[Rfam]
sRNA-Xcc1: a 103-nucleotide RNA from Haematospirillum jordaniae. The match comes from Rfam's covariance-model search (58 bits).
RNA sequence: GGCGGGAGGGCGGCGAAUAGAAUACCCGCAAGGGAAAUAAGUCCGCCCGGUACCUCUGACUGUGGGCAGUGUUAUUGGGUUUUUGACCUCCCGCCACCACGUG
Numbered sequence: 001g002g003c004g005g006g007a008g009g010g011c012g013g014c015g016a017a018u019a020g021a022a023u024a025c026c027c028g029c030a031a032g033g034g035a036a037a038u039a040a041g042u043c044c045g046c047c048c049g050g051u052a053c054c055u056c057u058g059a060c061u062g063u064g065g066g067c068a069g070u071g072u073u074a075u076u077g078g079g080u081u082u083u084u085g086a087c088c089u090c091c092c093g094c095c096a097c098c099a100c101g102u103g
Stems, first nucleotide, its partner, number of pairs: 001095009012043003016038001025034003045080008
A reference for the family is Chen et al. (2011), "sRNA-Xcc1, an integron-encoded transposon- and plasmid-transferred trans-acting sRNA, is under the positive control of the key virulence regulators HrpG and HrpX of Xanthomonas campestris pathovar campestris", RNA Biol. It is annotated as a small RNA.